[Rfam]
RNA: Glutamine riboswitch aptamer (glnA leader)
RNA sequence: AACGUUCAUCCUCUUUAAUCCAGCUAUCAAGCAGCAUUAAGGGGACGGAAGUAGGGAGUUAUCCCGAAGGAACGCGCU
Dot-bracket structure: ..(((((.(((((((.......................)))))))..[.....(((......)))....)))))]...